[Rfam]
RNA sequence: CAUCGAUAAAGGCAAAACUACCUAAAGGUAGUGACGCAAAACUAUAGGGGCUUCCCGUUUAAACGGUUGCCAGCCAGUUGCCGAA
Numbered sequence: 001c002a003u004c005g006a007u008a009a010a011g012g013c014a015a016a017a018c019u020a021c022c023u024a025a026a027g028g029u030a031g032u033g034a035c036g037c038a039a040a041a042c043u044a045u046a047g048g049g050g051c052u053u054c055c056c057g058u059u060u061a062a063a064c065g066g067u068u069g070c071c072a073g074c075c076a077g078u079u080g081c082c083g084a085a
Stems, first nucleotide, its partner, number of pairs: 012037002017032006040079004047075002049071003056065003
The family of this 85-nucleotide sequence from Sulfobacillus thermosulfidooxidans is "c-di-GMP-I riboswitch aptamer". The literature on the family includes a 2007 paper in Nucleic Acids Res by Weinberg et al., "Identification of 22 candidate structured RNAs in bacteria using the CMfinder comparative genomics pipeline". The match comes from Rfam's covariance-model search (73 bits). NCBI's taxonomy places the organism under Bacteria, Bacillota, Clostridia, Eubacteriales, Sulfobacillus thermosulfidooxidans. Rfam links the family to the GO term cyclic-di-GMP binding.